[Rfam]
MAT2A 3'UTR stem loop C: a 52-nucleotide RNA from Saimiri boliviensis.
It is annotated as a cis-regulatory element.
It scores 59 bits against the family's covariance model.
RNA sequence: GCUUUCUGAACAGCUGGCAUAGCUACAGAGAAACCAGCUUCCUUCAGAGAAG
Numbered sequence: 001g002c003u004u005u006c007u008g009a010a011c012a013g014c015u016g017g018c019a020u021a022g023c024u025a026c027a028g029a030g031a032a033a034c035c036a037g038c039u040u041c042c043u044u045c046a047g048a049g050a051a052g
Base pairs, nucleotide, nucleotide: 002052003051004049005048006047007046008045009044012039013038014037015036016035017034020025